Source information:
The family of this 75-nucleotide RNA from Azonexus hydrophilus is "SAH (S-adenosyl-L-homocysteine) riboswitch aptamer". Pairs were carried over by alignment from the consensus structure, which is taken from published work. Rfam 15.1 lists 1,354 matches to the family in 1,132 species. Lineage of the source: Bacteria > Pseudomonadota > Betaproteobacteria > Rhodocyclales > Azonexus. The literature on the family includes a 2008 paper in Mol Cell by Wang et al., "Riboswitches that sense S-adenosylhomocysteine and activate genes involved in coenzyme recycling".

RNA sequence: CCUGCCGAGGAGCGCUGCGACCACUUUGAAUAAAAUGGGGCCAGGCUCGGCAAUGAUCAACGGCGCUCGCAAACC
Number, nucleotide and partner (000 for none) at each position: 001c000002c000003u052004g051005c050006c049007g048008a047009g000010g000011a000012g000013c000014g000015c000016u000017g000018c000019g000020a000021c040022c039023a000024c037025u000026u035027u000028g000029a000030a000031u000032a000033a000034a000035a026036u000037g024038g000039g022040g021041c000042c000043a000044g000045g000046c000047u008048c007049g006050g005051c004052a003053a000054u000055g000056a000057u000058c000059a000060a000061c000062g000063g000064c000065g000066c000067u000068c000069g000070c000071a000072a000073a000074c000075c000